[Rfam]
RNA sequence: CCGGGACCAAGCAACCUCCCGGUCAGGCGGCAAUUGCCCAAGUGUUGC
Numbered sequence: 001c002c003g004g005g006a007c008c009a010a011g012c013a014a015c016c017u018c019c020c021g022g023u024c025a026g027g028c029g030g031c032a033a034u035u036g037c038c039c040a041a042g043u044g045u046u047g048c
Base pairs, nucleotide, nucleotide: 001022002021003020004019005018006017011048012047013046014045015044026038027037028036029035030034
This 48-nucleotide sequence from Croceicoccus naphthovorans belongs to the Rfam family "chrB-b RNA".
The match comes from Rfam's covariance-model search (42 bits).
The base pairs follow the family's consensus structure, which is taken from published work.
NCBI's taxonomy places the organism under Bacteria, Pseudomonadota, Alphaproteobacteria, Sphingomonadales, Croceicoccus.